RNA sequence: GUAAAGGAGCAAUAACCAAUUUCUUGUUCUAUCAGGAAGGCGUUAUUGUUCCUUUACUUUU
Numbered sequence: 001g002u003a004a005a006g007g008a009g010c011a012a013u014a015a016c017c018a019a020u021u022u023c024u025u026g027u028u029c030u031a032u033c034a035g036g037a038a039g040g041c042g043u044u045a046u047u048g049u050u051c052c053u054u055u056a057c058u059u060u061u
Stems, first nucleotide, its partner, number of pairs: 001057016017040001022037005

The record is a 61-nucleotide sequence from Camellia sinensis, which matches "Plastid-psbA-2 3UTR RNA" in Rfam. Its Rfam clan is "Plastid-psbA 3UTR RNA clan". For this family Rfam cites "Retrograde signaling in plants: A critical review focusing on the GUN pathway and beyond" (Richter et al., Plant Commun, 2023). Rfam's curators write: Plastid psbA-2 is a non-coding RNA (ncRNA) present in plastids. It was identified in inverted repeat sequences in the 3 prime untranslate region (3UTR) of photosystem II quinone-binding protein (psbA). The organism belongs to Camellia, within Eukaryota. The match comes from Rfam's covariance-model search (65 bits). Rfam classes the family as a cis-regulatory element.